[Rfam]
RNA sequence: AGGUCAUAGAAAGACAUAGUUGCAAGAUGGGAUUAGAAACCAUAUGUCUCAUCAGCACCCUAUGUCCUUUCUCUGCCCU
Number, nucleotide and partner (000 for none) at each position: 001a079002g078003g077004u000005c075006a074007u000008a072009g071010a070011a069012a068013g067014a065015c064016a063017u062018a061019g060020u000021u057022g056023c055024a000025a000026g053027a052028u051029g050030g049031g048032a047033u046034u000035a000036g000037a000038a000039a000040c000041c000042a000043u000044a000045u000046g033047u032048c031049u030050c029051a028052u027053c026054a000055g023056c022057a021058c000059c000060c019061u018062a017063u016064g015065u014066c000067c013068u012069u011070u010071c009072u008073c000074u006075g005076c000077c003078c002079u001
Shown here is a 79-nucleotide sequence from Homo sapiens, a member of the family "mir-3617 microRNA precursor family". The organism belongs to Homo, within Eukaryota.